Annotation: The family of this 86-nucleotide RNA from Pachycephala philippinensis is "mir-135 microRNA precursor family". The literature on the family includes a 2002 paper in Curr Biol by Lagos-Quintana et al., "Identification of tissue-specific microRNAs from mouse". Taxonomically the source falls in Pachycephala (Eukaryota, Chordata, Dipnotetrapodomorpha, Sauria).

RNA sequence: CCUCUGCUGUGGUUUAUGGCUUUUUAUUCCUAUGUGAUUGCUCUCCCGAACUCAUGUAGGGCGAAAAGCCAUGGGCUACUCAGAGG
Numbered sequence: 001c002c003u004c005u006g007c008u009g010u011g012g013u014u015u016a017u018g019g020c021u022u023u024u025u026a027u028u029c030c031u032a033u034g035u036g037a038u039u040g041c042u043c044u045c046c047c048g049a050a051c052u053c054a055u056g057u058a059g060g061g062c063g064a065a066a067a068g069c070c071a072u073g074g075g076c077u078a079c080u081c082a083g084a085g086g
Stems, first nucleotide, its partner, number of pairs: 002085005009079015028061010
Dot-bracket structure: .(((((..(((((((((((((((....((((((((((..............))))))))))...))))))))))))))).))))).